[Rfam]
RNA sequence: CAAUUAACAUUUAAAUAUAUCUAUAUAUUGUCGUGAUAAGGACGGCAGUCUCUACUCAGAACCGUAAAUUCUGAACUAUAGGUAAUCGUAAGUUGCAA
Numbered sequence: 001c002a003a004u005u006a007a008c009a010u011u012u013a014a015a016u017a018u019a020u021c022u023a024u025a026u027a028u029u030g031u032c033g034u035g036a037u038a039a040g041g042a043c044g045g046c047a048g049u050c051u052c053u054a055c056u057c058a059g060a061a062c063c064g065u066a067a068a069u070u071c072u073g074a075a076c077u078a079u080a081g082g083u084a085a086u087c088g089u090a091a092g093u094u095g096c097a098a
Base pairs, nucleotide, nucleotide: 018084019083020082021081022080023079024078025077029047030046031045032044033043034042056074057073058072059071060070061069